[Rfam]
Small nucleolar RNA U83B: a 94-nucleotide sequence from Callorhinchus milii. Rfam links the family to the GO terms RNA processing and nucleolus. U83B belongs to the C/D family of snoRNAs. The family has 21 seed sequences and 966 matches in Rfam 15.1. On this family, see Jady and Kiss, Nucleic Acids Res 2000: "Characterisation of the U83 and U84 small nucleolar RNAs: two novel 2'-O-ribose methylation guide RNAs that lack complementarities to ribosomal RNAs". Pairs were carried over by alignment from the consensus structure. It scores 60 bits against the family's covariance model. By type it is a C/D-box small nucleolar RNA.

Nucleotides: 094
Stems, first nucleotide, its partner, number of pairs: 002093004
Number, partner (000 for none) and nucleotide at each position: 001000a002093g003092c004091a005090u006000u007000c008000a009000a010000u011000g012000a013000u014000g015000a016000u017000c018000a019000c020000a021000u022000g023000g024000a025000u026000u027000a028000u029000g030000u031000g032000u033000u034000g035000g036000u037000a038000a039000a040000c041000g042000a043000c044000a045000c046000c047000c048000g049000a050000c051000a052000u053000u054000g055000a056000u057000g058000a059000g060000g061000a062000g063000u064000u065000a066000c067000a068000c069000c070000a071000u072000g073000u074000u075000g076000c077000c078000u079000u080000c081000c082000u083000u084000c085000u086000g087000a088000g089000a090005a091004u092003g093002c094000c